Record summary: The record is a 122-nucleotide RNA from Vibrio cholerae, which matches "MtlS RNA" in Rfam. Rfam's curators put it in the seed alignment. Its family is annotated with mannitol transport in the Gene Ontology. For this family Rfam cites "A cis-regulatory antisense RNA represses translation in Vibrio cholerae through extensive complementarity and proximity to the target locus" (Chang et al., RNA Biol, 2015).
RNA sequence: UCCCCCGUUGGAUGUUCCGUUUGAAUUUAAUCGUAGUAACGGUUCGGCAAAAACCGUUGAUUGCUUAGUACACAAUCACUCUACCACACAAAUUUCGAAUGGAAUCACCAACGGGUUUUUUG
Numbered sequence: 001u002c003c004c005c006c007g008u009u010g011g012a013u014g015u016u017c018c019g020u021u022u023g024a025a026u027u028u029a030a031u032c033g034u035a036g037u038a039a040c041g042g043u044u045c046g047g048c049a050a051a052a053a054c055c056g057u058u059g060a061u062u063g064c065u066u067a068g069u070a071c072a073c074a075a076u077c078a079c080u081c082u083a084c085c086a087c088a089c090a091a092a093u094u095u096c097g098a099a100u101g102g103a104a105u106c107a108c109c110a111a112c113g114g115g116u117u118u119u120u121u122g
Stems, first nucleotide, its partner, number of pairs: 004115006014105008023095003026090001028088001031086001033084004040056005058078006